[Rfam]
RNA sequence: UGCCAUUGCUAAGUCAAGGCUUCUUCCUGUGCAUAUUUUUUUGCCACCUAUCUAUGGAAGUAUUUUGUCUGUUACAGCUUUGGUAGAUGGAUUCUAGCCCGCCACCUUGGUUUCUUUCUGAAAUUGGGGUUGACAAGCGAUCGUUUUGAGAGCUCUGUCGUAUAGGGCUUGCUGUGUCUUGUUUUGAGUUGAGUUCUGCUUCCACUUCAUUUUUGUGGCAUCAUAGCAGUUCUCUUAGUAACAUCUCACACAUUU
Numbered sequence: 001u002g003c004c005a006u007u008g009c010u011a012a013g014u015c016a017a018g019g020c021u022u023c024u025u026c027c028u029g030u031g032c033a034u035a036u037u038u039u040u041u042u043g044c045c046a047c048c049u050a051u052c053u054a055u056g057g058a059a060g061u062a063u064u065u066u067g068u069c070u071g072u073u074a075c076a077g078c079u080u081u082g083g084u085a086g087a088u089g090g091a092u093u094c095u096a097g098c099c100c101g102c103c104a105c106c107u108u109g110g111u112u113u114c115u116u117u118c119u120g121a122a123a124u125u126g127g128g129g130u131u132g133a134c135a136a137g138c139g140a141u142c143g144u145u146u147u148g149a150g151a152g153c154u155c156u157g158u159c160g161u162a163u164a165g166g167g168c169u170u171g172c173u174g175u176g177u178c179u180u181g182u183u184u185u186g187a188g189u190u191g192a193g194u195u196c197u198g199c200u201u202c203c204a205c206u207u208c209a210u211u212u213u214u215g216u217g218g219c220a221u222c223a224u225a226g227c228a229g230u231u232c233u234c235u236u237a238g239u240a241a242c243a244u245c246u247c248a249c250a251c252a253u254u255u
Base pairs, nucleotide, nucleotide: 003083004082005081017070018069019068020067023060024059025058026057027056029044030043031042033040096169097168098167099166100165103132104131106129107128108126109125110124111123112122113121114120137153138152141149142148143147174249175248176247180243181242182241191234192233193232197228198227199226200225202218203217204216205215
RNA: Small nucleolar RNA snR191